[Rfam]
RNA: U11 spliceosomal RNA
RNA sequence: AAAAAUGGUCGGUUGGCUAUGUAUGCCACGCACAUCUUUUUAUUGAUGGGCGUUGUAUGGUUAUCAAGAAAUAUGACCAACAUAAUUUAUGGAAUAUAUAGGGUUGGCUUGCUCGGCUAACCCUGAU
Numbered sequence: 001a002a003a004a005a006u007g008g009u010c011g012g013u014u015g016g017c018u019a020u021g022u023a024u025g026c027c028a029c030g031c032a033c034a035u036c037u038u039u040u041u042a043u044u045g046a047u048g049g050g051c052g053u054u055g056u057a058u059g060g061u062u063a064u065c066a067a068g069a070a071a072u073a074u075g076a077c078c079a080a081c082a083u084a085a086u087u088u089a090u091g092g093a094a095u096a097u098a099u100a101g102g103g104u105u106g107g108c109u110u111g112c113u114c115g116g117c118u119a120a121c122c123c124u125g126a127u
Base pairs, nucleotide, nucleotide: 008081009080011078012077014028015027016026017025029052030051031050033048034047035046036045053076054075055074056073057072058071099125100124101123102122103121104120105119106118107117109116110115